This 97-nucleotide RNA sequence from Leersia perrieri belongs to the Rfam family "Small nucleolar RNA R11/Z151".
The literature on the family includes a 2001 paper in J Mol Biol by Barneche et al., "Identification of 66 box C/D snoRNAs in Arabidopsis thaliana: extensive gene duplications generated multiple isoforms predicting new ribosomal RNA 2'-O-methylation sites".
RNA sequence: GGGCUUGUGAUGAUUAAGGUCUGAAAGGAUCUUAGCGAAUUUCUGUGGCAAUUUUGUCGUCGUUGAUCGCUUAAUGUUGUUACAGACACGGAAUCCU
Numbered sequence: 001g002g003g004c005u006u007g008u009g010a011u012g013a014u015u016a017a018g019g020u021c022u023g024a025a026a027g028g029a030u031c032u033u034a035g036c037g038a039a040u041u042u043c044u045g046u047g048g049c050a051a052u053u054u055u056g057u058c059g060u061c062g063u064u065g066a067u068c069g070c071u072u073a074a075u076g077u078u079g080u081u082a083c084a085g086a087c088a089c090g091g092a093a094u095c096c097u
Stems, first nucleotide, its partner, number of pairs: 001097003005093001

Background:
Lineage of the source: Eukaryota > Streptophytina > Liliopsida > Petrosaviidae > Leersia. It is annotated as a C/D-box small nucleolar RNA. The base pairs follow the family's consensus structure, which was predicted with PFOLD.